[Rfam]
RNA: PyrR binding site
RNA sequence: UUCACCUUUAAUGGCAGUCCAGAGAGGCUGAGAAGGUACAUGUGAACGUGUUGCUAAAAUUUGUGCUGCAAAUUUUUCCAACAUGCUAUUUAAACACGUACUCAACCCUCUCAGGCUAUUCGCCUCGAGAGGUUUUUUUAU
Numbered sequence: 001u002u003c004a005c006c007u008u009u010a011a012u013g014g015c016a017g018u019c020c021a022g023a024g025a026g027g028c029u030g031a032g033a034a035g036g037u038a039c040a041u042g043u044g045a046a047c048g049u050g051u052u053g054c055u056a057a058a059a060u061u062u063g064u065g066c067u068g069c070a071a072a073u074u075u076u077u078c079c080a081a082c083a084u085g086c087u088a089u090u091u092a093a094a095c096a097c098g099u100a101c102u103c104a105a106c107c108c109u110c111u112c113a114g115g116c117u118a119u120u121c122g123c124c125u126c127g128a129g130a131g132g133u134u135u136u137u138u139u140a141u
Stems, first nucleotide, its partner, number of pairs: 004037006015030005050082004056076008104135002107132006114125002